Nucleotides: 096
Base pairs, nucleotide, nucleotide: 001095002094003093004092005091006090007089010024011023012022013021026066027065028064029063030062072088073087074086075085076084
Number, partner (000 for none) and nucleotide at each position: 001095g002094c003093c004092c005091u006090c007089g008000u009000a010024g011023c012022c013021c014000a015000a016000u017000g018000g019000u020000a021013g022012g023011g024010c025000g026066u027065c028064a029063g030062a031000c032000u033000u034000c035000u036000a037000a038000c039000u040000u041000c042000c043000c044000a045000g046000g047000u048000u049000g050000g051000g052000a053000a054000u055000a056000a057000g058000u059000g060000a061000a062030u063029c064028u065027g066026a067000a068000g069000g070000u071000u072088g073087c074086g075085g076084g077000u078000u079000c080000g081000a082000g083000u084076c085075c086074c087073g088072c089007c090006g091005g092004g093003g094002g095001u096000a
Shown here is a 96-nucleotide RNA sequence from Blastomyces gilchristii, a member of the family "tRNA".
Lineage of the source: Eukaryota > Opisthokonta > Ascomycota > Onygenales > Blastomyces gilchristii.
The family's consensus secondary structure is taken from published work.
Rfam classes the family as a transfer RNA.
Rfam 15.1 lists 5,335,975 matches to the family in 14,413 species.